[Rfam]
RNA sequence: CGUCCGUCCUUCACCGCACAGAAGGGCGGCACGCGGUGCCUGCGCUCUCUGCCCUGACCGCGCCGGCACCCGGACACGGCCGCGGGCCCGCACACCCCCGGCCGUGGUGAUCCCGGGCUGCGGUGCCAGGCGGGCUGAGGGUCCCGCUCGGUGC
Numbered sequence: 001c002g003u004c005c006g007u008c009c010u011u012c013a014c015c016g017c018a019c020a021g022a023a024g025g026g027c028g029g030c031a032c033g034c035g036g037u038g039c040c041u042g043c044g045c046u047c048u049c050u051g052c053c054c055u056g057a058c059c060g061c062g063c064c065g066g067c068a069c070c071c072g073g074a075c076a077c078g079g080c081c082g083c084g085g086g087c088c089c090g091c092a093c094a095c096c097c098c099c100g101g102c103c104g105u106g107g108u109g110a111u112c113c114c115g116g117g118c119u120g121c122g123g124u125g126c127c128a129g130g131c132g133g134g135c136u137g138a139g140g141g142u143c144c145c146g147c148u149c150g151g152u153g154c
Stems, first nucleotide, its partner, number of pairs: 004029003008025005033071001035070003039066002042063001044061002046057002076105007084097003110124003114120002128148001130147005
Shown here is a 154-nucleotide RNA sequence from Streptomyces montanisoli, a member of the family "Streptomyces sRNA scr5239". On this family, see Vockenhuber and Suess, Microbiology 2012: "Streptomyces coelicolor sRNA scr5239 inhibits agarase expression by direct base pairing to the dagA coding region". By type it is a small RNA. Its family is annotated with mRNA binding and negative regulation of translation in the Gene Ontology.